[Rfam]
RNA sequence: UCUUAUGUGGAAAUGUCUACUCCUCAUUCAUUUGGGGCCAGGAAUAUAUCCACAGCUUACUGUACUAAAAAAUACUAAUAAGAGAGUGUUCACAGGGGUACCAACCUUACAGUCAAGGUUAAGUAGUAGUAGAUUUCUUUCUUUUUUA
Numbered sequence: 001u002c003u004u005a006u007g008u009g010g011a012a013a014u015g016u017c018u019a020c021u022c023c024u025c026a027u028u029c030a031u032u033u034g035g036g037g038c039c040a041g042g043a044a045u046a047u048a049u050c051c052a053c054a055g056c057u058u059a060c061u062g063u064a065c066u067a068a069a070a071a072a073u074a075c076u077a078a079u080a081a082g083a084g085a086g087u088g089u090u091c092a093c094a095g096g097g098g099u100a101c102c103a104a105c106c107u108u109a110c111a112g113u114c115a116a117g118g119u120u121a122a123g124u125a126g127u128a129g130u131a132g133a134u135u136u137c138u139u140u141c142u143u144u145u146u147u148a
Stems, first nucleotide, its partner, number of pairs: 004059002007056002016042003020037004084141003088137001097127001101123001103120006
This 148-nucleotide RNA sequence from Erinaceus europaeus belongs to the Rfam family "Small nucleolar RNA U109". A reference for the family is Gu et al. (2005), "A novel experimental approach for systematic identification of box H/ACA snoRNAs from eukaryotes", Nucleic Acids Res. The organism belongs to Erinaceus, within Eukaryota. By type it is an H/ACA-box small nucleolar RNA.